Description: Saccharomyces telomerase: a 64-nucleotide part of an RNA from Saccharomyces paradoxus. Taxonomically the source falls in Saccharomyces (Eukaryota, Fungi, Saccharomycotina, Saccharomycetes). The sequence is in the family's curated seed alignment.

[Rfam]
RNA sequence: AGUAGAUUUUCGCCUUUAAAAGAAUAAAUUCCAUUAAAAAAAGGUAAAAAGAAAAAUCUAUUCA
Numbered sequence: 001a002g003u004a005g006a007u008u009u010u011c012g013c014c015u016u017u018a019a020a021a022g023a024a025u026a027a028a029u030u031c032c033a034u035u036a037a038a039a040a041a042a043g044g045u046a047a048a049a050a051g052a053a054a055a056a057u058c059u060a061u062u063c064a
Stems, first nucleotide, its partner, number of pairs: 001062010